Fusobacteriales-1 RNA: a 113-nucleotide RNA sequence from Parablautia intestinalis. The family's RNA type in Rfam is cis-regulatory element. The source organism's lineage runs through Bacteria, Clostridia, Lachnospirales, Lachnospiraceae and Parablautia.

RNA sequence: AAAUACCCCGCAGCUUGCUGCGGGGGCUUUGACUCAAAAACGUUUCACAAUGUACGACAAUGGAACAUUGUUUACACAAAUACGCUUCACAAUGUGCGGCAGAGAAACAUUGU
Numbered sequence: 001a002a003a004u005a006c007c008c009c010g011c012a013g014c015u016u017g018c019u020g021c022g023g024g025g026g027c028u029u030u031g032a033c034u035c036a037a038a039a040a041c042g043u044u045u046c047a048c049a050a051u052g053u054a055c056g057a058c059a060a061u062g063g064a065a066c067a068u069u070g071u072u073u074a075c076a077c078a079a080a081u082a083c084g085c086u087u088c089a090c091a092a093u094g095u096g097c098g099g100c101a102g103a104g105a106a107a108c109a110u111u112g113u
Stems, first nucleotide, its partner, number of pairs: 006025008041056003047071007083098003089113007